[Rfam]
RNA sequence: CCGCUAUUUACAGCAUCAGCUGAUCACUGAUGGCUCAACUGUAGAUGGUAGACAACUAAAUACUGUAGCUGCCUUUUGAGCGGGCUUGCUGCAAUCCGAAACGGAGUAAUUCGUUUGGACUGCGGUUGGUUACUUGCACCCAUUUUGCGGCUACCUU
Number, nucleotide and partner (000 for none) at each position: 001c051002c000003g049004c048005u047006a000007u045008u044009u043010a042011c041012a040013g039014c032015a031016u030017c029018a028019g000020c000021u000022g000023a000024u000025c000026a000027c000028u018029g017030a016031u015032g014033g081034c080035u079036c078037a077038a076039c013040u012041g011042u010043a009044g008045a007046u000047g005048g004049u003050a000051g001052a000053c000054a000055a000056c000057u000058a000059a000060a000061u000062a000063c000064u000065g000066u153067a152068g151069c150070u149071g148072c147073c000074u000075u000076u038077u037078g036079a035080g034081c033082g000083g000084g000085c000086u000087u000088g126089c125090u124091g123092c122093a000094a000095u000096c000097c000098g000099a000100a000101a114102c113103g112104g111105a110106g000107u000108a000109a000110u105111u104112c103113g102114u101115u000116u000117g000118g000119a000120c000121u000122g092123c091124g090125g089126u088127u000128g000129g000130u000131u000132a000133c000134u000135u000136g000137c000138a000139c000140c000141c000142a000143u000144u000145u000146u000147g072148c071149g070150g069151c068152u067153a066154c000155c000156u000157u000
RNA: DUF2800 RNA